[Rfam]
RNA sequence: CUCUUAUCCAGAGCAGGCUGAGGGACUGGCCCGAUGACGCCCGGCAACCGGCGCCCAUGAGGGCGUGGCGGUGCUAAUUCCUGCAGGACCCGACGGGUCCUGAGAGAUGAGAG
Numbered sequence: 001c002u003c004u005u006a007u008c009c010a011g012a013g014c015a016g017g018c019u020g021a022g023g024g025a026c027u028g029g030c031c032c033g034a035u036g037a038c039g040c041c042c043g044g045c046a047a048c049c050g051g052c053g054c055c056c057a058u059g060a061g062g063g064c065g066u067g068g069c070g071g072u073g074c075u076a077a078u079u080c081c082u083g084c085a086g087g088a089c090c091c092g093a094c095g096g097g098u099c100c101u102g103a104g105a106g107a108u109g110a111g112a113g
Base pairs, nucleotide, nucleotide: 001113002112003111004110005109006108007107008106013042016041017040018039022032023031024030026083028081029080043075044074045073046072048071049070051066052065053064079105084102085101086100087099088098089097

This 113-nucleotide RNA from Caldinitratiruptor microaerophilus belongs to the Rfam family "SAM riboswitch aptamer (S box leader)". On this family, see Grundy and Henkin, Mol Microbiol 1998: "The S box regulon: a new global transcription termination control system for methionine and cysteine biosynthesis genes in gram-positive bacteria". Its family is annotated with regulation of gene expression in the Gene Ontology. NCBI's taxonomy places the organism under Bacteria, Bacillota, Eubacteriales, Symbiobacteriaceae, Caldinitratiruptor.